[Rfam]
RNA sequence: UUGUACUAUAGAGGAGCUUUUAGCAUUAGUACAUAGUGGAGCAGGCAUGCCGGGAAACUAUGGAAAGGGUAUAAAAGCCGAAAUCUUAGCAAAGGCAUUUGCUUUGGUUGAUAAAGGGUCUUAAUCGAGCUUUAUUCUUUGACGCAUUCAUUGGUGCUAUAGAUACA
Numbered sequence: 001u002u003g004u005a006c007u008a009u010a011g012a013g014g015a016g017c018u019u020u021u022a023g024c025a026u027u028a029g030u031a032c033a034u035a036g037u038g039g040a041g042c043a044g045g046c047a048u049g050c051c052g053g054g055a056a057a058c059u060a061u062g063g064a065a066a067g068g069g070u071a072u073a074a075a076a077g078c079c080g081a082a083a084u085c086u087u088a089g090c091a092a093a094g095g096c097a098u099u100u101g102c103u104u105u106g107g108u109u110g111a112u113a114a115a116g117g118g119u120c121u122u123a124a125u126c127g128a129g130c131u132u133u134a135u136u137c138u139u140u141g142a143c144g145c146a147u148u149c150a151u152u153g154g155u156g157c158u159a160u161a162g163a164u165a166c167a
Stems, first nucleotide, its partner, number of pairs: 006162006016078006023070002032062006082109004088103006110136007119128002
Shown here is a 167-nucleotide RNA from Mycoplasmopsis gallinacea, a member of the family "Lysine riboswitch aptamer". The match comes from Rfam's covariance-model search (65 bits). Rfam links the family to the GO term lysine biosynthetic process. The base pairs follow the family's consensus structure, which is taken from published work. The source organism's lineage runs through Bacteria, Bacillati, Mycoplasmatota, Metamycoplasmataceae and Mycoplasmopsis.